RNA sequence: CCAGGUGGCCGGACGGCCGCUGGUGGCACCGCAAGGUGUCGCUGGAGGAAAGUCCGGGCUCCACGGGAAUACGAUGCCGGUUAACGACCGGCGGGGGUCAAACCCCAGGGAAAGUGCCACAGAGAACAGACCGCCGGACCAUCGCAAGGUCGUCCGGCAAGGGUGAAACGGUGCGGUAAGAGCGCACCGCGCCCCCGGCAACGGGGGCGGCAGGGCAAACCCCAUCGGGAGCAAGGCCGAAUAGGGGUGACCGGCGAGCGUGGGUUUCGGCCCAUGUGGCGCAAGGGCAUUCCCGCCCCGUCACCCGGGUUGGCCGCGCGAGGCGCGCCGCGAGGCGCGUCCCAGAGGAAUGGUCGUCCUAUCCCCGGUUUUCCGGAGAUGGACAGAACCCGGCUUACAGGCCACCUGGCGCA
Numbered sequence: 001c002c003a004g005g006u007g008g009c010c011g012g013a014c015g016g017c018c019g020c021u022g023g024u025g026g027c028a029c030c031g032c033a034a035g036g037u038g039u040c041g042c043u044g045g046a047g048g049a050a051a052g053u054c055c056g057g058g059c060u061c062c063a064c065g066g067g068a069a070u071a072c073g074a075u076g077c078c079g080g081u082u083a084a085c086g087a088c089c090g091g092c093g094g095g096g097g098u099c100a101a102a103c104c105c106c107a108g109g110g111a112a113a114g115u116g117c118c119a120c121a122g123a124g125a126a127c128a129g130a131c132c133g134c135c136g137g138a139c140c141a142u143c144g145c146a147a148g149g150u151c152g153u154c155c156g157g158c159a160a161g162g163g164u165g166a167a168a169c170g171g172u173g174c175g176g177u178a179a180g181a182g183c184g185c186a187c188c189g190c191g192c193c194c195c196c197g198g199c200a201a202c203g204g205g206g207g208c209g210g211c212a213g214g215g216c217a218a219a220c221c222c223c224a225u226c227g228g229g230a231g232c233a234a235g236g237c238c239g240a241a242u243a244g245g246g247g248u249g250a251c252c253g254g255c256g257a258g259c260g261u262g263g264g265u266u267u268c269g270g271c272c273c274a275u276g277u278g279g280c281g282c283a284a285g286g287g288c289a290u291u292c293c294c295g296c297c298c299c300g301u302c303a304c305c306c307g308g309g310u311u312g313g314c315c316g317c318g319c320g321a322g323g324c325g326c327g328c329c330g331c332g333a334g335g336c337g338c339g340u341c342c343c344a345g346a347g348g349a350a351u352g353g354u355c356g357u358c359c360u361a362u363c364c365c366c367g368g369u370u371u372u373c374c375g376g377a378g379a380u381g382g383a384c385a386g387a388a389c390c391c392g393g394c395u396u397a398c399a400g401g402c403c404a405c406c407u408g409g410c411g412c413a
Stems, first nucleotide, its partner, number of pairs: 001409010011398001012358007020045009050396003054393005059231004067293001069291001072227005077091005092108001093106004109222002114220002116216003131162002133158007141150003170188006189211001190209008235315004245306006285298004322341008

The family of this 413-nucleotide sequence from Belnapia rosea is "Bacterial RNase P class A".
Gene Ontology terms of the family: ribonuclease P activity, tRNA processing and dimeric ribonuclease P complex.
Its Rfam clan is "RNaseP clan".
The match comes from Rfam's covariance-model search (291 bits).